[Rfam]
RNA sequence: CAGGCAUGCUGGUGUCCCGCCAGCGGCGCCUGGGGAGCGCCCCCGACACCGGACGGGACAACG
Dot-bracket structure: ............(((((((....(((....(((((....).))))...)))..)))))))...
The record is a 63-nucleotide RNA from Paramesorhizobium leguminum, which matches "ybhL leader" in Rfam. A search with the family's covariance model found it, with a score of 62 bits. The family's RNA type in Rfam is cis-regulatory leader. Gene Ontology term of the family: regulation of gene expression. The literature on the family includes a 2005 paper in Genome Biol by Corbino et al., "Evidence for a second class of S-adenosylmethionine riboswitches and other regulatory RNA motifs in alpha-proteobacteria". This family is a putative regulatory RNA structure that is found upstream of an uncharacterized membrane protein in alpha-proteobacteria.